The family of this 131-nucleotide RNA sequence from Propionispora sp. 2/2-37 is "c-di-AMP riboswitch aptamer (ydaO/yuaA leader)".
RNA sequence: AUAUAGUCCAAGCCGAAUUUCCAUGGAAAACGGGGAACCCAAUUUAUCAGGGGUGAAUCCGCGUAUGCGGUAGGGAUUAUACCUUUGACCGAACCCGACAGCUAACCUCGUAGGCUUUAGAAAGGGGUGUU
Numbered sequence: 001a002u003a004u005a006g007u008c009c010a011a012g013c014c015g016a017a018u019u020u021c022c023a024u025g026g027a028a029a030a031c032g033g034g035g036a037a038c039c040c041a042a043u044u045u046a047u048c049a050g051g052g053g054u055g056a057a058u059c060c061g062c063g064u065a066u067g068c069g070g071u072a073g074g075g076a077u078u079a080u081a082c083c084u085u086u087g088a089c090c091g092a093a094c095c096c097g098a099c100a101g102c103u104a105a106c107c108u109c110g111u112a113g114g115c116u117u118u119a120g121a122a123a124g125g126g127g128u129g130u131u
Base pairs, nucleotide, nucleotide: 011116012115013114014113018029019028020027030111031110032109033108034107035106040050051096052095053094059070060069061068062067073090074089